Shown here is a 148-nucleotide RNA sequence from Ovis aries, a member of the family "Small nucleolar RNA SNORA79".
Lineage of the source: Eukaryota > Euteleostomi > Dipnotetrapodomorpha > Caprinae > Ovis.
Gene Ontology terms of the family: RNA processing and nucleolus.
ACA65 (SNORA79) is a member of the H/ACA class of snoRNAs that guide the sites of modification of uridines to pseudouridines. This snoRNA was identified by computational screening and its expression in mouse experimentally verified by Northern blot and primer extension analysis.
Pairs were carried over by alignment from the consensus structure, which was predicted with RNAalifold.
RNA sequence: UGAUGGCUGUUCCUCUCACUGCUUGAAGCUUUAGGUAGUAGGAUUUUAGUCCACCAUGUAUCUAAGCUGACUUGUCUUCUCUUAGGACACCAUGGGGAUGGGUUGGUGGUCCACUAGUGUCUUCUGAUUUUUAUGGAGUCAAACAAUU
Numbered sequence: 001u002g003a004u005g006g007c008u009g010u011u012c013c014u015c016u017c018a019c020u021g022c023u024u025g026a027a028g029c030u031u032u033a034g035g036u037a038g039u040a041g042g043a044u045u046u047u048a049g050u051c052c053a054c055c056a057u058g059u060a061u062c063u064a065a066g067c068u069g070a071c072u073u074g075u076c077u078u079c080u081c082u083u084a085g086g087a088c089a090c091c092a093u094g095g096g097g098a099u100g101g102g103u104u105g106g107u108g109g110u111c112c113a114c115u116a117g118u119g120u121c122u123u124c125u126g127a128u129u130u131u132u133a134u135g136g137a138g139u140c141a142a143a144c145a146a147u148u
Base pairs, nucleotide, nucleotide: 001056002055004053005052006051008049014043015042016041018039020037021036022035023034069140070139071138072137073136082127083126084125085124086123087120088119089118090117096112097111098110099109